RNA sequence: AAAUGAUAAUAGCAAACUUACCGAAAGGUAAGGACGCAAAGUCACAGGUCUAAAGCAUAUGCUAUGACGGCUGGAUUACCAAA
Numbered sequence: 001a002a003a004u005g006a007u008a009a010u011a012g013c014a015a016a017c018u019u020a021c022c023g024a025a026a027g028g029u030a031a032g033g034a035c036g037c038a039a040a041g042u043c044a045c046a047g048g049u050c051u052a053a054a055g056c057a058u059a060u061g062c063u064a065u066g067a068c069g070g071c072u073g074g075a076u077u078a079c080c081a082a083a
Stems, first nucleotide, its partner, number of pairs: 012037002017032006040077004045073003048068003055062002